[Rfam]
RNA sequence: UUUUGUCACUAGGGGUGCCGCAAGGCUGAGACGAACAUUUGGUUCGGACCCUUUGAACCUGAUCUGGUUUAUACCAGCGUAGGGAAGUGGAUGAGCAUUGUA
Numbered sequence: 001u002u003u004u005g006u007c008a009c010u011a012g013g014g015g016u017g018c019c020g021c022a023a024g025g026c027u028g029a030g031a032c033g034a035a036c037a038u039u040u041g042g043u044u045c046g047g048a049c050c051c052u053u054u055g056a057a058c059c060u061g062a063u064c065u066g067g068u069u070u071a072u073a074c075c076a077g078c079g080u081a082g083g084g085a086a087g088u089g090g091a092u093g094a095g096c097a098u099u100g101u102a
Base pairs, nucleotide, nucleotide: 006090007089008088009087010086011052012051013050014049016046017026018025019024033045034044035043036042058083059082060081061080064077065076066075067074
RNA: TPP riboswitch aptamer (THI element)
Organism: Paenibacillus sp. FSL R7-0331